Shown here is a 91-nucleotide RNA sequence from Tumebacillus algifaecis, a member of the family "c-di-GMP-I riboswitch aptamer". It scores 79 bits against the family's covariance model. The organism belongs to Tumebacillus, within Bacteria.
[Rfam]
RNA sequence: CACACGAAACGGCAAACCGUUCGAAAGGACGGGACGCAAAGCCACGGGCCUACCGCGCGACAUCGUCCGCCACGGCAGCCGGGUUGCCGAA
Numbered sequence: 001c002a003c004a005c006g007a008a009a010c011g012g013c014a015a016a017c018c019g020u021u022c023g024a025a026a027g028g029a030c031g032g033g034a035c036g037c038a039a040a041g042c043c044a045c046g047g048g049c050c051u052a053c054c055g056c057g058c059g060a061c062a063u064c065g066u067c068c069g070c071c072a073c074g075g076c077a078g079c080c081g082g083g084u085u086g087c088c089g090a091a
Base pairs, nucleotide, nucleotide: 012037013036017032018031019030020029021028022027040085041084042083043082045081046080047079048076049075050074055070056069057068